The record is a 77-nucleotide RNA sequence from Muribaculaceae bacterium Isolate-080, which matches "Bacteroidetes FopS (family of paralogous sRNAs)" in Rfam.
The organism belongs to Muribaculaceae, within Bacteria.
From the family's description: The RNA-binding protein RbpB and BTncRNA_FopS sRNA are involved in the post-transcription regulation of polysaccharide utilisation loci (PUL).
By type it is a small RNA.
The literature on the family includes a 2025 paper in Nat Commun by Ruttiger et al., "The global RNA-binding protein RbpB is a regulator of polysaccharide utilization in Bacteroides thetaiotaomicron".
[Rfam]
RNA sequence: GUGUUUUUCAUAGUAUUAGAUUAAGAUAAAGGUUUAAAAAGGAAAGAGGAUGUCGUGAGACAUCUUCUUUUUUAUUA
Numbered sequence: 001g002u003g004u005u006u007u008u009c010a011u012a013g014u015a016u017u018a019g020a021u022u023a024a025g026a027u028a029a030a031g032g033u034u035u036a037a038a039a040a041g042g043a044a045a046g047a048g049g050a051u052g053u054c055g056u057g058a059g060a061c062a063u064c065u066u067c068u069u070u071u072u073u074a075u076u077a
Stems, first nucleotide, its partner, number of pairs: 048065007